[Rfam]
RNA sequence: AUCUUAUCAAGAAAGGCAGAGGGUUUGGCCCAAUGAAGCCUUGGCAACCUGCAAAAGAUCAUUGAGCAAGGUGCCAAUUCCAACCAGUCCGUCAGUUGGCGGAUGGAGAGAUAAGUC
Numbered sequence: 001a002u003c004u005u006a007u008c009a010a011g012a013a014a015g016g017c018a019g020a021g022g023g024u025u026u027g028g029c030c031c032a033a034u035g036a037a038g039c040c041u042u043g044g045c046a047a048c049c050u051g052c053a054a055a056a057g058a059u060c061a062u063u064g065a066g067c068a069a070g071g072u073g074c075c076a077a078u079u080c081c082a083a084c085c086a087g088u089c090c091g092u093c094a095g096u097u098g099g100c101g102g103a104u105g106g107a108g109a110g111a112u113a114a115g116u117c
Stems, first nucleotide, its partner, number of pairs: 003115006013042005021031003025083004043075004048071002050068003079109001084106003088102002

Record summary:
This 117-nucleotide RNA sequence from Niabella ginsenosidivorans belongs to the Rfam family "SAM riboswitch aptamer (S box leader)". The match comes from Rfam's covariance-model search (79 bits).